[Rfam]
RNA sequence: GAGGAUUGCCCUUCGUGGGCGUUUCCUCCCUAGACUUCGGGCCGCUCUUACCAGGGCGGCCUCUUUCUUUGGGCGGC
Numbered sequence: 001g002a003g004g005a006u007u008g009c010c011c012u013u014c015g016u017g018g019g020c021g022u023u024u025c026c027u028c029c030c031u032a033g034a035c036u037u038c039g040g041g042c043c044g045c046u047c048u049u050a051c052c053a054g055g056g057c058g059g060c061c062u063c064u065u066u067c068u069u070u071g072g073g074c075g076g077c
Base pairs, nucleotide, nucleotide: 008020009019010018011017039062040061041060042059043058044057045056046055047054
RNA: Makes More Granules Regulator RNA (mmgR)
Organism: Methylobacterium sp. 4-46